[Rfam]
The record is a 79-nucleotide RNA sequence from Arachis hypogaea, which matches "Small nucleolar RNA J33" in Rfam. The family's RNA type in Rfam is C/D-box small nucleolar RNA. The pairing is the family consensus, mapped onto this sequence. Taxonomically the source falls in Arachis (Eukaryota, Euphyllophyta, Gunneridae, Pentapetalae). Gene Ontology terms of the family: nucleolus and RNA processing. A search with the family's covariance model found it, with a score of 66 bits.

RNA sequence: CAGUUAGAGGAAUGAUGUACUACUAUAAGGCCCUCAAGCUUUUGGCUUUUCUUGAUUCUGCACCAGACAUAAAUGUCUG
Number, nucleotide and partner (000 for none) at each position: 001c079002a078003g077004u000005u075006a074007g000008a000009g000010g000011a000012a000013u000014g000015a000016u000017g000018u000019a000020c000021u000022a000023c000024u000025a000026u000027a000028a000029g000030g000031c000032c000033c000034u000035c000036a000037a000038g000039c000040u000041u000042u000043u000044g000045g000046c000047u000048u000049u000050u000051c000052u000053u000054g000055a000056u000057u000058c000059u000060g000061c000062a000063c000064c000065a000066g000067a000068c000069a000070u000071a000072a000073a000074u006075g005076u000077c003078u002079g001